RNA sequence: CUUCACCGAGCCGAGCAGCAGCGGCUUCCCGUCGCGCUGGCCGUACGUGGCGAGCAGCGCCUGCGCCUC
Numbered sequence: 001c002u003u004c005a006c007c008g009a010g011c012c013g014a015g016c017a018g019c020a021g022c023g024g025c026u027u028c029c030c031g032u033c034g035c036g037c038u039g040g041c042c043g044u045a046c047g048u049g050g051c052g053a054g055c056a057g058c059g060c061c062u063g064c065g066c067c068u069c
Base pairs, nucleotide, nucleotide: 014026015025016024033063035059036058037054038053041050042049043048